[Rfam]
Shown here is an 85-nucleotide RNA sequence from Thryothorus ludovicianus, a member of the family "Small nucleolar SNORD12/SNORD106". Its Rfam clan is "SNORD12 clan". Taxonomically the source falls in Thryothorus (Eukaryota, Deuterostomia, Euteleostomi, Sauropsida). Gene Ontology terms of the family: nucleolus and RNA processing. The family's consensus secondary structure was predicted with RNAalifold.

RNA sequence: GCUGGUAGCGGUGAUGACUCUUUCCCCGUCAGAGCGACAGUGUUGAUUCUCUCUGUCCAAGCCAGGUCGUGUCUGAUGCUCCAGC
Numbered sequence: 001g002c003u004g005g006u007a008g009c010g011g012u013g014a015u016g017a018c019u020c021u022u023u024c025c026c027c028g029u030c031a032g033a034g035c036g037a038c039a040g041u042g043u044u045g046a047u048u049c050u051c052u053c054u055g056u057c058c059a060a061g062c063c064a065g066g067u068c069g070u071g072u073c074u075g076a077u078g079c080u081c082c083a084g085c
Stems, first nucleotide, its partner, number of pairs: 001085005007080004